[Rfam]
RNA sequence: ACGUAAAAAGGGCAAAUCUGUUGAAAGGCAGAGACGCAAAACUAAAGGGCCUAAAACCGGUAACCGGUAAUGGCAGCCAGCUGCUACG
Numbered sequence: 001a002c003g004u005a006a007a008a009a010g011g012g013c014a015a016a017u018c019u020g021u022u023g024a025a026a027g028g029c030a031g032a033g034a035c036g037c038a039a040a041a042c043u044a045a046a047g048g049g050c051c052u053a054a055a056a057c058c059g060g061u062a063a064c065c066g067g068u069a070a071u072g073g074c075a076g077c078c079a080g081c082u083g084c085u086a087c088g
Stems, first nucleotide, its partner, number of pairs: 012037002017032006040082001042080002047078002049074003056068004
RNA: c-di-GMP-I riboswitch aptamer
Organism: Eubacterium callanderi